[Rfam]
RNA sequence: GAAGUCUCAACAGGAGCGAUAUGAGAACACACAAUCAUAUGCAUAAAUAUUGUGUAUGUGUGUGUGCACGUGUGCAUGUGCAUGUGCGUGCUUGUGUGUUCCCAGGUCGCCCCUGCCGAGCCUGC
Numbered sequence: 001g002a003a004g005u006c007u008c009a010a011c012a013g014g015a016g017c018g019a020u021a022u023g024a025g026a027a028c029a030c031a032c033a034a035u036c037a038u039a040u041g042c043a044u045a046a047a048u049a050u051u052g053u054g055u056a057u058g059u060g061u062g063u064g065u066g067c068a069c070g071u072g073u074g075c076a077u078g079u080g081c082a083u084g085u086g087c088g089u090g091c092u093u094g095u096g097u098g099u100u101c102c103c104a105g106g107u108c109g110c111c112c113c114u115g116c117c118g119a120g121c122c123u124g125c
Stems, first nucleotide, its partner, number of pairs: 007119002011115004016110004023103001025101010

MIR398 microRNA precursor family: a 125-nucleotide sequence from Amborella trichopoda. The family has 14 seed sequences and 627 matches in Rfam 15.1. A reference for the family is Jones-Rhoades and Bartel (2004), "Computational identification of plant microRNAs and their targets, including a stress-induced miRNA", Mol Cell. Its family is annotated with miRNA-mediated post-transcriptional gene silencing and RISC complex in the Gene Ontology.